[Rfam]
RNA sequence: AUUUGCGAGGAUAAAAACACGUCCCGGUAGGUAGUCCGGGAGUUCGCCGGCACGAAGUCGUCGGAUCGGUAACCUGCCUCCUUAGGUUGUCCGUCCCUUGCAAUUAUCCA
Numbered sequence: 001a002u003u004u005g006c007g008a009g010g011a012u013a014a015a016a017a018c019a020c021g022u023c024c025c026g027g028u029a030g031g032u033a034g035u036c037c038g039g040g041a042g043u044u045c046g047c048c049g050g051c052a053c054g055a056a057g058u059c060g061u062c063g064g065a066u067c068g069g070u071a072a073c074c075u076g077c078c079u080c081c082u083u084a085g086g087u088u089g090u091c092c093g094u095c096c097c098u099u100g101c102a103a104u105u106a107u108c109c110a
Stems, first nucleotide, its partner, number of pairs: 004102007022041006042066005076087004

A member of the RNA family "azaaromatic riboswitch aptamer (yjdF RNA)" from Clostridium sp. CAG:413, 110 nucleotides long. The match comes from Rfam's covariance-model search (75 bits).